[Rfam]
terC RNA: a 61-nucleotide RNA sequence from Sphingomonas piscis. A search with the family's covariance model found it, with a score of 61 bits.

RNA sequence: GGCGCGGACCGGGCCCCUCUGGCGGCCGUCUCUACGACGACCGUGAUGUCGGACCGCAUCG
Numbered sequence: 001g002g003c004g005c006g007g008a009c010c011g012g013g014c015c016c017c018u019c020u021g022g023c024g025g026c027c028g029u030c031u032c033u034a035c036g037a038c039g040a041c042c043g044u045g046a047u048g049u050c051g052g053a054c055c056g057c058a059u060c061g
Base pairs, nucleotide, nucleotide: 006055007054009052010051011050012049022044023043024042025041027039028038029037

The source organism's lineage runs through Bacteria, Pseudomonadota, Sphingomonadales, Sphingomonadaceae and Sphingomonas.